[Rfam]
RNA: Mason-Pfizer monkey virus packaging signal
Organism: Nannospalax galili
RNA sequence: UGGCACCCAACGUGGGGCUGUGGAUGCUGGGGGACAACGUGAGGGUCCGACGACAAAAGAAAGAAGGGGUGCACACCCGAUCAAACAAUAGUUCGGAGACGUGGUAGCCUGCUGUGACCGAGCCGACAGGUAAGUUGGUCGUUUAAUCAUGGGGCAAAAAUUAAGUCAACAUCAGAAAUAUGUAAUACAGUUAAAGAAAGCUUUACAGACAAGAGGAGUAAAGGUUACAACUGAGGAUUUAUUUCAUUUCUUUGAUUUUGUAAAAGACAUCUGCCCAU
Number, nucleotide and partner (000 for none) at each position: 001u000002g000003g000004c000005a000006c032007c031008c030009a000010a000011c000012g027013u026014g025015g000016g000017g000018c000019u000020g000021u000022g000023g000024a000025u014026g013027c012028u000029g000030g008031g007032g006033g000034a000035c000036a000037a000038c052039g051040u050041g000042a000043g000044g000045g000046u000047c000048c000049g000050a040051c039052g038053a000054c000055a000056a000057a000058a000059g000060a000061a000062a000063g000064a000065a000066g000067g000068g000069g000070u000071g000072c000073a000074c000075a000076c000077c000078c000079g000080a000081u000082c000083a000084a000085a000086c000087a000088a131089u130090a000091g127092u126093u000094c000095g000096g000097a000098g000099a000100c116101g115102u114103g113104g112105u000106a000107g000108c000109c000110u000111g000112c104113u103114g102115u101116g100117a000118c000119c000120g000121a000122g000123c000124c000125g000126a092127c091128a000129g000130g089131u088132a000133a000134g000135u000136u000137g000138g000139u000140c154141g000142u153143u152144u151145a150146a000147u000148c000149a000150u145151g144152g143153g142154g140155c000156a000157a000158a000159a000160a000161u000162u205163a204164a203165g201166u200167c000168a000169a000170c000171a000172u000173c000174a000175g000176a000177a000178a000179u000180a000181u000182g000183u000184a000185a000186u000187a000188c000189a000190g000191u000192u000193a000194a000195a000196g000197a000198a000199a000200g166201c165202u000203u164204u163205a162206c000207a000208g000209a000210c000211a000212a000213g253214a252215g251216g250217a249218g248219u000220a000221a000222a240223g239224g238225u237226u236227a000228c000229a000230a000231c000232u000233g000234a000235g000236g226237a225238u224239u223240u222241a000242u000243u000244u000245c000246a000247u000248u218249u217250c216251u215252u214253u213254g000255a000256u000257u000258u000259u000260g000261u000262a000263a278264a000265a000266g275267a000268c273269a000270u000271c000272u000273g268274c000275c266276c000277a000278u263